[Rfam]
RNA sequence: UGCUACCAACCCCUGUCUUAACCUCCACGUGGUGACCGCUGGGGGCUCUUUUUUAAAGAAAAGCUGCAAGUGGAGAAGG
Numbered sequence: 001u002g003c004u005a006c007c008a009a010c011c012c013c014u015g016u017c018u019u020a021a022c023c024u025c026c027a028c029g030u031g032g033u034g035a036c037c038g039c040u041g042g043g044g045g046c047u048c049u050u051u052u053u054u055a056a057a058g059a060a061a062a063g064c065u066g067c068a069a070g071u072g073g074a075g076a077a078g079g
Stems, first nucleotide, its partner, number of pairs: 012079003016075001018073003021033003045065001047063001049061005
Dot-bracket structure: ...........(((.(.((((((.......)))...........(.(.(((((...))))).).).....))).).)))
The record is a 79-nucleotide RNA sequence from Hermetia illucens, which matches "drz-agam-1 ribozyme" in Rfam. NCBI's taxonomy places the organism under Eukaryota, Eumetazoa, Protostomia, Stratiomyomorpha, Hermetia. The match comes from Rfam's covariance-model search (40 bits). The family has 7 seed sequences and 10,507 matches in Rfam 15.1. The base pairs follow the family's consensus structure, which is taken from published work. A reference for the family is Webb et al. (2009), "Widespread occurrence of self-cleaving ribozymes", Science.